Notes: S4-Clostridia ribosomal protein leader: a 54-nucleotide RNA from Dorea longicatena. The base pairs follow the family's consensus structure, which is taken from published work. The literature on the family includes a 2020 paper in BMC Microbiol by Eckert and Weinberg, "Discovery of 20 novel ribosomal leader candidates in bacteria and archaea". Rfam's curators put it in the seed alignment.
[Rfam]
RNA sequence: GAAAGGGCAUGAUACCGAACAUGCCUGGGACAAAAAUACAGGUCCCCUAUUAAA
Numbered sequence: 001g002a003a004a005g006g007g008c009a010u011g012a013u014a015c016c017g018a019a020c021a022u023g024c025c026u027g028g029g030a031c032a033a034a035a036a037u038a039c040a041g042g043u044c045c046c047c048u049a050u051u052a053a054a
Stems, first nucleotide, its partner, number of pairs: 005026007027046005